[Rfam]
RNA sequence: CUUCCGCUCUCCCCGCACAGGAGGGCGGAUCGAGGAACCCGGAGCGCUCUGCCCUGACCGCCCGGGAGUCCUCAGGUCGGCCGCUCGGCCGACGCAACUCCGGGCUGCGGUGCCGGGCGGGUUGAGGGUCCCGCCCUGGCGC
Dot-bracket structure: ..((((.(((((.......))))).))))..(((((..((.(.((.(........)...)).).))..)))))...((((((....))))))....(((.((...)).)))...(((((((........)))))))......
Numbered sequence: 001c002u003u004c005c006g007c008u009c010u011c012c013c014c015g016c017a018c019a020g021g022a023g024g025g026c027g028g029a030u031c032g033a034g035g036a037a038c039c040c041g042g043a044g045c046g047c048u049c050u051g052c053c054c055u056g057a058c059c060g061c062c063c064g065g066g067a068g069u070c071c072u073c074a075g076g077u078c079g080g081c082c083g084c085u086c087g088g089c090c091g092a093c094g095c096a097a098c099u100c101c102g103g104g105c106u107g108c109g110g111u112g113c114c115g116g117g118c119g120g121g122u123u124g125a126g127g128g129u130c131c132c133g134c135c136c137u138g139g140c141g142c
Stems, first nucleotide, its partner, number of pairs: 003029004008024005032073005039066002042063001044061002047056001077092006097111003101107002115136007

This 142-nucleotide RNA from Streptomyces albiflaviniger belongs to the Rfam family "Streptomyces sRNA scr5239". NCBI's taxonomy places the organism under Bacteria, Bacillati, Actinomycetota, Kitasatosporales, Streptomyces. Its family is annotated with mRNA binding and negative regulation of translation in the Gene Ontology. The family's RNA type in Rfam is small RNA.